The family of this 64-nucleotide sequence from Otolemur garnettii is "Selenocysteine insertion sequence 1". Rfam describes the family as follows. The incorporation of selenocysteine into a protein sequence is directed by an in-frame UGA codon (usually a stop codon) within the coding region of the mRNA. Selenoprotein mRNAs contain a conserved secondary structure in the 3' UTR that is required for the distinction of UGA stop from UGA selenocysteine. The selenocysteine insertion sequence (SECIS) is around 60 nt in length and adopts a hairpin structure which is sufficiently well-defined and conserved to act as a computational screen for selenoprotein genes. A search with the family's covariance model found it, with a score of 38 bits.

[Rfam]
RNA sequence: AUUGCGUUAAUGAGAACAGAAACAUAAACUAUGACCUAGGGGUUUUUGUUGGAAAGUGAGCAAU
Dot-bracket structure: (((((.........(((((((((.....(((.....)))..))))))))).........)))))